[Rfam]
RNA: Bacterial large signal recognition particle RNA
RNA sequence: CCGCACUAGUUGGGGAGAUAGCGGUGCCCUGUACCUGCAACCCGCUACAGCAGGGAUGAAUCCCGGCCCCCGGAGCUGCGCUGUGUCGUCUGCCCCCGGUAAGUGGCGAUGAUAGAUCGGUCCCGCGCAACGGGAACCCGUGAACCAUGUCAGGCGGGGAACCGAGCAGCAUUAAGCGGAACCUCCCGUGUGCCGCGGGGCUGCCGUUCUUGAGUUGGCUGCCAGGGUCACGGACAUAGCGCAGUGUUCAAAGGCCGGUGUGCGG
Numbered sequence: 001c002c003g004c005a006c007u008a009g010u011u012g013g014g015g016a017g018a019u020a021g022c023g024g025u026g027c028c029c030u031g032u033a034c035c036u037g038c039a040a041c042c043c044g045c046u047a048c049a050g051c052a053g054g055g056a057u058g059a060a061u062c063c064c065g066g067c068c069c070c071c072g073g074a075g076c077u078g079c080g081c082u083g084u085g086u087c088g089u090c091u092g093c094c095c096c097c098g099g100u101a102a103g104u105g106g107c108g109a110u111g112a113u114a115g116a117u118c119g120g121u122c123c124c125g126c127g128c129a130a131c132g133g134g135a136a137c138c139c140g141u142g143a144a145c146c147a148u149g150u151c152a153g154g155c156g157g158g159g160a161a162c163c164g165a166g167c168a169g170c171a172u173u174a175a176g177c178g179g180a181a182c183c184u185c186c187c188g189u190g191u192g193c194c195g196c197g198g199g200g201c202u203g204c205c206g207u208u209c210u211u212g213a214g215u216u217g218g219c220u221g222c223c224a225g226g227g228u229c230a231c232g233g234a235c236a237u238a239g240c241g242c243a244g245u246g247u248u249c250a251a252a253g254g255c256c257g258g259u260g261u262g263c264g265g
Stems, first nucleotide, its partner, number of pairs: 001265006009057003012030004017025001019023001034054005063258006072249003078242010091230002095226002098223003103219002105216003114210003118206004122199006128190002131188005138179004147172004155164003